[Rfam]
RNA sequence: AAGAGCUUGGAGCCAAUCAAGACUGAGAGGAUUGACUCAAAAACUAA
Numbered sequence: 001a002a003g004a005g006c007u008u009g010g011a012g013c014c015a016a017u018c019a020a021g022a023c024u025g026a027g028a029g030g031a032u033u034g035a036c037u038c039a040a041a042a043a044c045u046a047a
Stems, first nucleotide, its partner, number of pairs: 007041002010038003014034004